Description: The record is a 345-nucleotide RNA from Tichowtungia aerotolerans, which matches "Bacterial RNase P class A" in Rfam. Taxonomically the source falls in Tichowtungia (Bacteria, Pseudomonadati, Kiritimatiellota, Tichowtungiales).
[Rfam]
RNA sequence: CAGGCAGAGUGUAUCGGCCGCUCUCCGCUUCGGCGGAGGGAGGAAAGUCCGGACUCCGCAGGGCAGGACGUUCCGUGGUUAACGCGGGAACACCGGUGCAAUAUCGCCGGUGAUGGAAAGUGCCGCAGAAAACGAACCGCCCCGAUUCGUCGGGGUAAGGGUGAAAAGGUGGGGUAAGAGCCCACCGCCCCGAGGGUAACCGAGGGGGCAGGGUAAACCCCGUCCGGAGCAAGAUCAAAUAGGGAGCAAGAGGCGGCCCGCCUCGUUUGAGUUCCGGGUUGAUCGCAUUAGAUAAAUGGCUGAGCCUUCGGGUAACAGAAUCCGGCUUACUGCUCUGUCUGCACU
Numbered sequence: 001c002a003g004g005c006a007g008a009g010u011g012u013a014u015c016g017g018c019c020g021c022u023c024u025c026c027g028c029u030u031c032g033g034c035g036g037a038g039g040g041a042g043g044a045a046a047g048u049c050c051g052g053a054c055u056c057c058g059c060a061g062g063g064c065a066g067g068a069c070g071u072u073c074c075g076u077g078g079u080u081a082a083c084g085c086g087g088g089a090a091c092a093c094c095g096g097u098g099c100a101a102u103a104u105c106g107c108c109g110g111u112g113a114u115g116g117a118a119a120g121u122g123c124c125g126c127a128g129a130a131a132a133c134g135a136a137c138c139g140c141c142c143c144g145a146u147u148c149g150u151c152g153g154g155g156u157a158a159g160g161g162u163g164a165a166a167a168g169g170u171g172g173g174g175u176a177a178g179a180g181c182c183c184a185c186c187g188c189c190c191c192g193a194g195g196g197u198a199a200c201c202g203a204g205g206g207g208g209c210a211g212g213g214u215a216a217a218c219c220c221c222g223u224c225c226g227g228a229g230c231a232a233g234a235u236c237a238a239a240u241a242g243g244g245a246g247c248a249a250g251a252g253g254c255g256g257c258c259c260g261c262c263u264c265g266u267u268u269g270a271g272u273u274c275c276g277g278g279u280u281g282a283u284c285g286c287a288u289u290a291g292a293u294a295a296a297u298g299g300c301u302g303a304g305c306c307u308u309c310g311g312g313u314a315a316c317a318g319a320a321u322c323c324g325g326c327u328u329a330c331u332g333c334u335c336u337g338u339c340u341g342c343a344c345u
Stems, first nucleotide, its partner, number of pairs: 001341010011330001014303006021040008045328003049325005054229004061259004066225005071089007090114001091112008115220002120218002122214003137160002139156007168186006187209001188207004194201002233284004243275005250264005

The family's RNA type in Rfam is ribozyme.